[Rfam]
RNA sequence: AGAGUGUUAUGAUGUUGGAAUGAGGCUCAUCUUCAUUUCCUAGUCUAGCUCGUGGUGGCUACUCUCCGACUUCCUUUUUAGGAGUUGGAGAG
Numbered sequence: 001a002g003a004g005u006g007u008u009a010u011g012a013u014g015u016u017g018g019a020a021u022g023a024g025g026c027u028c029a030u031c032u033u034c035a036u037u038u039c040c041u042a043g044u045c046u047a048g049c050u051c052g053u054g055g056u057g058g059c060u061a062c063u064c065u066c067c068g069a070c071u072u073c074c075u076u077u078u079u080a081g082g083a084g085u086u087g088g089a090g091a092g
Stems, first nucleotide, its partner, number of pairs: 002051004011045003017040004021035005062092012